The family of this 99-nucleotide RNA is "ZMP/ZTP riboswitch aptamer (pfl RNA motif)".
A reference for the family is Jones et al. (2019), "Co-crystal structure of the Fusobacterium ulcerans ZTP riboswitch using an X-ray free-electron laser", Acta Crystallogr F Struct Biol Commun.
The family's consensus secondary structure is taken from published work.
Rfam 15.1 lists 3,295 matches to the family in 2,545 species.

RNA sequence: UUAACUCCGCGUAACUGGCGAUAGCGACUUCCAAGUCCGAGGUGGAACGACCACCGUGAAGCGCGGGGUGCAGUCUUGCCGUUCGCCUGGGCAGCCGUG
Numbered sequence: 001u002u003a004a005c006u007c008c009g010c011g012u013a014a015c016u017g018g019c020g021a022u023a024g025c026g027a028c029u030u031c032c033a034a035g036u037c038c039g040a041g042g043u044g045g046a047a048c049g050a051c052c053a054c055c056g057u058g059a060a061g062c063g064c065g066g067g068g069u070g071c072a073g074u075c076u077u078g079c080c081g082u083u084c085g086c087c088u089g090g091g092c093a094g095c096c097g098u099g
Stems, first nucleotide, its partner, number of pairs: 004069009015058001017087005042054004076094005